[Rfam]
RNA sequence: UCAGCGAAAGGGCAAACCCACUGAGAGGUGGGGACGCAAAGCCACGGGACCCGCGAGGGCCAGCCGGGCCAUCGAA
Number, nucleotide and partner (000 for none) at each position: 001u000002c000003a000004g000005c000006g000007a000008a000009a000010g000011g000012g037013c036014a000015a000016a000017c032018c031019c030020a029021c028022u027023g000024a000025g000026a000027g022028g021029u020030g019031g018032g017033g000034a000035c000036g013037c012038a000039a000040a000041g069042c068043c067044a000045c066046g065047g064048g061049a000050c059051c058052c057053g000054c000055g000056a000057g052058g051059g050060c000061c048062a000063g000064c047065c046066g045067g043068g042069c041070c000071a000072u000073c000074g000075a000076a000
RNA: c-di-GMP-I riboswitch aptamer
Organism: Actinotalea bogoriensis